The family of this 219-nucleotide RNA from Selaginella moellendorffii is "RNase MRP". The match comes from Rfam's covariance-model search (80 bits). Rfam's curators write: RNase MRP is an enzymatically active ribonucleoprotein with two distinct roles in eukaryotes. In mitochondria it plays a direct role in the initiation of mitochondrial DNA replication. In the nucleus it is involved in precursor rRNA processing, where it cleaves the internal transcribed spacer 1 between 18S and 5.8S rRNAs. Rfam links the family to the GO terms rRNA processing, ribonuclease MRP complex and ribonuclease MRP activity.
RNA sequence: UUUGGUGGAGAAAGGAGCGCUUCGGUCCAUUAGGGCUGAGUGAAAGUCCCCGAGCUUGGUGCUUUGUGACACCAAAUGGCAGAGAGUGCCACCUCGAAAGAGGAGAAGCCCGGUUGAGGCCACUGUGGUGUCUCGCCAUGGCCGGGUUAGCUGGCUAUAGUCCCAGUAAUGCGCUUACACACGCGUGUACAACAGAACGGGGCUUACUAUCUCCACCAA
Numbered sequence: 001u002u003u004g005g006u007g008g009a010g011a012a013a014g015g016a017g018c019g020c021u022u023c024g025g026u027c028c029a030u031u032a033g034g035g036c037u038g039a040g041u042g043a044a045a046g047u048c049c050c051c052g053a054g055c056u057u058g059g060u061g062c063u064u065u066g067u068g069a070c071a072c073c074a075a076a077u078g079g080c081a082g083a084g085a086g087u088g089c090c091a092c093c094u095c096g097a098a099a100g101a102g103g104a105g106a107a108g109c110c111c112g113g114u115u116g117a118g119g120c121c122a123c124u125g126u127g128g129u130g131u132c133u134c135g136c137c138a139u140g141g142c143c144g145g146g147u148u149a150g151c152u153g154g155c156u157a158u159a160g161u162c163c164c165a166g167u168a169a170u171g172c173g174c175u176u177a178c179a180c181a182c183g184c185g186u187g188u189a190c191a192a193c194a195g196a197a198c199g200g201g202g203c204u205u206a207c208u209a210u211c212u213c214c215a216c217c218a219a
Stems, first nucleotide, its partner, number of pairs: 002219010015176006022040001023038006044205003048202004078090004092103004105148002111144006118137003179188003